Annotation: Rfam assigns this 91-nucleotide RNA sequence from Anopheles gambiae to the family "mir-282 microRNA precursor family". Rfam's curators put it in the seed alignment. A reference for the family is Li et al. (2009), "Direct sequencing and expression analysis of a large number of miRNAs in Aedes aegypti and a multi-species survey of novel mosquito miRNAs", BMC Genomics. The base pairs follow the family's consensus structure, which was predicted with RNAalifold.

[Rfam]
RNA sequence: UAACAGAGCUAAUCUAGCCUCUUCUAGGCUUUGUCUGUACAGUUUCUGCAAACCAGACAUAGCCUGUCAGAGGUUAGGUGAAAUCUGCUAG
Numbered sequence: 001u002a003a004c005a006g007a008g009c010u011a012a013u014c015u016a017g018c019c020u021c022u023u024c025u026a027g028g029c030u031u032u033g034u035c036u037g038u039a040c041a042g043u044u045u046c047u048g049c050a051a052a053c054c055a056g057a058c059a060u061a062g063c064c065u066g067u068c069a070g071a072g073g074u075u076a077g078g079u080g081a082a083a084u085c086u087g088c089u090a091g
Base pairs, nucleotide, nucleotide: 012079013078014077015076016075017074018073019072020071027064028063029062030061032059033058034057035056036055